[Rfam]
RNA: Bacillaceae-1 RNA
Organism: Salipaludibacillus agaradhaerens
RNA sequence: UUUCAAGGAAUACAGGCUAAGAACGUCACGUCGUGUGACAACGGCUGCACUAGCACGUCCUGUGCG
Numbered sequence: 001u002u003u004c005a006a007g008g009a010a011u012a013c014a015g016g017c018u019a020a021g022a023a024c025g026u027c028a029c030g031u032c033g034u035g036u037g038a039c040a041a042c043g044g045c046u047g048c049a050c051u052a053g054c055a056c057g058u059c060c061u062g063u064g065c066g
Base pairs, nucleotide, nucleotide: 011049013047014046015045017043025039026038027037028036029035053065054064055063056062